A member of the RNA family "Bacterial RNase P class A" from Halotalea alkalilenta, 362 nucleotides long. Pairs were carried over by alignment from the consensus structure, which is taken from published work. The organism belongs to Halotalea, within Bacteria.
[Rfam]
RNA sequence: AGAGCGGGCUAGACAGUCGCCGCCGGGGUUCGCCCCGGGGGAGGAAAGUCCGGGCUCCAUAGGGCAGAGUGCCAGGUAACCCCUGGGCGGCGCGAGCCGACGGAAAGUGCAGCAGAGAGUAGACCGCCUACGCAGGCCCGGCUCGCCGGGCUGCCGGCAAGGGUGAAAGGGUGCGGUAAGAGCGCACCGCGCGGCUGGCAACAGGCGUGGCAUGGUAAACCCCACUCGGAGCAAGACCGAAUAGGAACCCGAUGGCGCGGCCCGCGCUUGGGUUCGGGUAGGUUGCUUGAGGUGUACGGUGACGUACAUCCUAGAGGAAUGACUGUCCACGACAGAACCCGGCUUAUCGGCCGGCUCUCUCC
Numbered sequence: 001a002g003a004g005c006g007g008g009c010u011a012g013a014c015a016g017u018c019g020c021c022g023c024c025g026g027g028g029u030u031c032g033c034c035c036c037g038g039g040g041g042a043g044g045a046a047a048g049u050c051c052g053g054g055c056u057c058c059a060u061a062g063g064g065c066a067g068a069g070u071g072c073c074a075g076g077u078a079a080c081c082c083c084u085g086g087g088c089g090g091c092g093c094g095a096g097c098c099g100a101c102g103g104a105a106a107g108u109g110c111a112g113c114a115g116a117g118a119g120u121a122g123a124c125c126g127c128c129u130a131c132g133c134a135g136g137c138c139c140g141g142c143u144c145g146c147c148g149g150g151c152u153g154c155c156g157g158c159a160a161g162g163g164u165g166a167a168a169g170g171g172u173g174c175g176g177u178a179a180g181a182g183c184g185c186a187c188c189g190c191g192c193g194g195c196u197g198g199c200a201a202c203a204g205g206c207g208u209g210g211c212a213u214g215g216u217a218a219a220c221c222c223c224a225c226u227c228g229g230a231g232c233a234a235g236a237c238c239g240a241a242u243a244g245g246a247a248c249c250c251g252a253u254g255g256c257g258c259g260g261c262c263c264g265c266g267c268u269u270g271g272g273u274u275c276g277g278g279u280a281g282g283u284u285g286c287u288u289g290a291g292g293u294g295u296a297c298g299g300u301g302a303c304g305u306a307c308a309u310c311c312u313a314g315a316g317g318a319a320u321g322a323c324u325g326u327c328c329a330c331g332a333c334a335g336a337a338c339c340c341g342g343c344u345u346a347u348c349g350g351c352c353g354g355c356u357c358u359c360u361c362c
Stems, first nucleotide, its partner, number of pairs: 001358005007352004011347001012327007020041002023038006046345003050342005055231004062263004067227005072086005087101001088099004102222002107220002109216002124162002126158003132154004170188006189211001190209004195204003235284004245275006254268005291310008
By type it is a ribozyme.